[Rfam]
The record is a 129-nucleotide sequence from Dysosmobacter welbionis, which matches "FMN riboswitch aptamer (RFN element)" in Rfam. Pairs were carried over by alignment from the consensus structure, which is taken from published work. The match comes from Rfam's covariance-model search (111 bits). NCBI's taxonomy places the organism under Bacteria, Bacillati, Clostridia, Oscillospiraceae, Dysosmobacter.
RNA sequence: CUUUGUCUUCAGGGCGGGGUGAAAUUCCCCACUGGCGGUACAGUCCGCGACCGCCUGCGCGUAUGCACAGGCGCUGACUCGGUGAAACUCCGGGACCAACAGUUACAGUCUGGAUGGAAGAAGAUGAGU
Numbered sequence: 001c002u003u004u005g006u007c008u009u010c011a012g013g014g015c016g017g018g019g020u021g022a023a024a025u026u027c028c029c030c031a032c033u034g035g036c037g038g039u040a041c042a043g044u045c046c047g048c049g050a051c052c053g054c055c056u057g058c059g060c061g062u063a064u065g066c067a068c069a070g071g072c073g074c075u076g077a078c079u080c081g082g083u084g085a086a087a088c089u090c091c092g093g094g095a096c097c098a099a100c101a102g103u104u105a106c107a108g109u110c111u112g113g114a115u116g117g118a119a120g121a122a123g124a125u126g127a128g129u
Stems, first nucleotide, its partner, number of pairs: 003127008017029003031109002033098002035048004043096002052073002078094005100112003